[Rfam]
RNA: permuted transfer-messenger RNA
RNA sequence: GAGCAUAAACGCGCUCGGAAUAGACGUUCAGGACUGGGGGGCGGUACCCCACAGCUCCACCAUAUCCAGACCAGUGAGGUCGGCCGCGGGAAAACAGUAGGACACCCCAAGCCGUAAAGGAGCCUCAAGCCGAAGCAAGGGGGUCUGGAUUUGAUGGGGCUGAAACAGGAUCGACUGGCGUUCAAAGGGGUAAGCUUUGCUUCGGUGAGGAACCACCGUUAUCGGUCCAACGAGUACAACUGCAAACGCAAACCGUGCUCCCGCACUCGCCCUGGCUGCCUGA
Numbered sequence: 001g002a003g004c005a006u007a008a009a010c011g012c013g014c015u016c017g018g019a020a021u022a023g024a025c026g027u028u029c030a031g032g033a034c035u036g037g038g039g040g041g042c043g044g045u046a047c048c049c050c051a052c053a054g055c056u057c058c059a060c061c062a063u064a065u066c067c068a069g070a071c072c073a074g075u076g077a078g079g080u081c082g083g084c085c086g087c088g089g090g091a092a093a094a095c096a097g098u099a100g101g102a103c104a105c106c107c108c109a110a111g112c113c114g115u116a117a118a119g120g121a122g123c124c125u126c127a128a129g130c131c132g133a134a135g136c137a138a139g140g141g142g143g144u145c146u147g148g149a150u151u152u153g154a155u156g157g158g159g160c161u162g163a164a165a166c167a168g169g170a171u172c173g174a175c176u177g178g179c180g181u182u183c184a185a186a187g188g189g190g191u192a193a194g195c196u197u198u199g200c201u202u203c204g205g206u207g208a209g210g211a212a213c214c215a216c217c218g219u220u221a222u223c224g225g226u227c228c229a230a231c232g233a234g235u236a237c238a239a240c241u242g243c244a245a246a247c248g249c250a251a252a253c254c255g256u257g258c259u260c261c262c263g264c265a266c267u268c269g270c271c272c273u274g275g276c277u278g279c280c281u282g283a
Stems, first nucleotide, its partner, number of pairs: 001202005013191004025180003029177003035051005052162007203218004